[Rfam]
RNA: Plastid-psbA-3 3UTR RNA
RNA sequence: GAAGGAGCAAUAACGACCCUAUUAUUUUAUCAAGAUGGUUGGUAUUGCUCCUUCAACU
Numbered sequence: 001g002a003a004g005g006a007g008c009a010a011u012a013a014c015g016a017c018c019c020u021a022u023u024a025u026u027u028u029a030u031c032a033a034g035a036u037g038g039u040u041g042g043u044a045u046u047g048c049u050c051c052u053u054c055a056a057c058u
Base pairs, nucleotide, nucleotide: 001054002053003052004051005050006049007048008047009046010045011044012043014041019037020035022033023032